[Rfam]
RNA sequence: AAACAGGGCUUCUGUAGUGAGUGGCACAUGUAGAGCAGUUUGAUUGCUCUACGUGCGGAAUCGACAUCAAGAGAUUUUGGAAGCAUAAUUUUUUGGUACUUGGGCAGCUGGUGAUCAUUGGUCCUAGCGCCCGC
Numbered sequence: 001a002a003a004c005a006g007g008g009c010u011u012c013u014g015u016a017g018u019g020a021g022u023g024g025c026a027c028a029u030g031u032a033g034a035g036c037a038g039u040u041u042g043a044u045u046g047c048u049c050u051a052c053g054u055g056c057g058g059a060a061u062c063g064a065c066a067u068c069a070a071g072a073g074a075u076u077u078u079g080g081a082a083g084c085a086u087a088a089u090u091u092u093u094u095g096g097u098a099c100u101u102g103g104g105c106a107g108c109u110g111g112u113g114a115u116c117a118u119u120g121g122u123c124c125u126a127g128c129g130c131c132c133g134c
Stems, first nucleotide, its partner, number of pairs: 008084005013026003017022001027055012056079007102132004107128005113123004